[Rfam]
RNA sequence: AGGAGGAACAGCCACAGUGGCGGGGCCAGCUCUGGAACCCUGGCUUCAGCCCCUGCAAUAACCACGGAGCUCUCCGUCUGCAGGGCCUGGAGGCUCCAUGGCGGG
Numbered sequence: 001a002g003g004a005g006g007a008a009c010a011g012c013c014a015c016a017g018u019g020g021c022g023g024g025g026c027c028a029g030c031u032c033u034g035g036a037a038c039c040c041u042g043g044c045u046u047c048a049g050c051c052c053c054u055g056c057a058a059u060a061a062c063c064a065c066g067g068a069g070c071u072c073u074c075c076g077u078c079u080g081c082a083g084g085g086c087c088u089g090g091a092g093g094c095u096c097c098a099u100g101g102c103g104g105g
Stems, first nucleotide, its partner, number of pairs: 002097004009089003012085002019078007028071007041057002
Rfam assigns this 105-nucleotide sequence from Vulpes vulpes to the family "mir-8834 microRNA precursor family". Gene Ontology terms of the family: RISC complex and miRNA-mediated post-transcriptional gene silencing. The match comes from Rfam's covariance-model search (76 bits). The base pairs follow the family's consensus structure, which was predicted with RNAalifold.